[Rfam]
RNA sequence: AUGCAGUGAUGAUCUCUAAAAUGAUACUUACAACUCGCUGAUUGUUAAAUGAAGACAUGAAUUUCCUUGGCUGUGUCUGAGCAU
Numbered sequence: 001a002u003g004c005a006g007u008g009a010u011g012a013u014c015u016c017u018a019a020a021a022u023g024a025u026a027c028u029u030a031c032a033a034c035u036c037g038c039u040g041a042u043u044g045u046u047a048a049a050u051g052a053a054g055a056c057a058u059g060a061a062u063u064u065c066c067u068u069g070g071c072u073g074u075g076u077c078u079g080a081g082c083a084u
Base pairs, nucleotide, nucleotide: 001084002083003082004081